[Rfam]
RNA sequence: CAUCGGCAGUUUUUGCCGAAGUCCGGUCUCAGGCCCGUCCCCCGCCUAUCCGGACCCUGCGGCAGCCUCAUCCCCCUCUCCGGGCUGCCGCACCGUUUGAAGAAUGUGCCGCCGUGGCUCCCCCCUCCACCACGGCGGCACUUUUU
Numbered sequence: 001c002a003u004c005g006g007c008a009g010u011u012u013u014u015g016c017c018g019a020a021g022u023c024c025g026g027u028c029u030c031a032g033g034c035c036c037g038u039c040c041c042c043c044g045c046c047u048a049u050c051c052g053g054a055c056c057c058u059g060c061g062g063c064a065g066c067c068u069c070a071u072c073c074c075c076c077u078c079u080c081c082g083g084g085c086u087g088c089c090g091c092a093c094c095g096u097u098u099g100a101a102g103a104a105u106g107u108g109c110c111g112c113c114g115u116g117g118c119u120c121c122c123c124c125c126u127c128c129a130c131c132a133c134g135g136c137g138g139c140a141c142u143u144u145u146u
Stems, first nucleotide, its partner, number of pairs: 022054005032046003058092010104143001106141012